[Rfam]
RNA sequence: UUGAGUUACGAUUUUCGGUGAAUCGAAUAUCGAGGUUAGGAUUAAGGACUUUUUCCGGUUUGGUAAUUCCGGUUAAAAAUUACCUGGCGCCCAUAAGG
Numbered sequence: 001u002u003g004a005g006u007u008a009c010g011a012u013u014u015u016c017g018g019u020g021a022a023u024c025g026a027a028u029a030u031c032g033a034g035g036u037u038a039g040g041a042u043u044a045a046g047g048a049c050u051u052u053u054u055c056c057g058g059u060u061u062g063g064u065a066a067u068u069c070c071g072g073u074u075a076a077a078a079a080u081u082a083c084c085u086g087g088c089g090c091c092c093a094u095a096a097g098g
Stems, first nucleotide, its partner, number of pairs: 009032004014027002044051002055072004062084006
About this RNA
wcaG RNA: a 98-nucleotide RNA sequence from Fopius arisanus. By type it is a cis-regulatory element.